[Rfam]
RNA sequence: GUUAUAGGUCGCCACCCGGUCCCCUCCUGGCGGGUCCCCUGACUUUCUUCCCCGUAGUCAGGUGGCUCACCAGGAGGGGACCAGGUGGCGAACAACAUAGGAG
Numbered sequence: 001g002u003u004a005u006a007g008g009u010c011g012c013c014a015c016c017c018g019g020u021c022c023c024c025u026c027c028u029g030g031c032g033g034g035u036c037c038c039c040u041g042a043c044u045u046u047c048u049u050c051c052c053c054g055u056a057g058u059c060a061g062g063u064g065g066c067u068c069a070c071c072a073g074g075a076g077g078g079g080a081c082c083a084g085g086u087g088g089c090g091a092a093c094a095a096c097a098u099a100g101g102a103g
Stems, first nucleotide, its partner, number of pairs: 010090007018082002021079010032068005038062007
The record is a 103-nucleotide sequence from Tessaracoccus sp. OH4464_COT-324, which matches "mraW RNA" in Rfam. The base pairs follow the family's consensus structure, which is taken from published work. A search with the family's covariance model found it, with a score of 69 bits.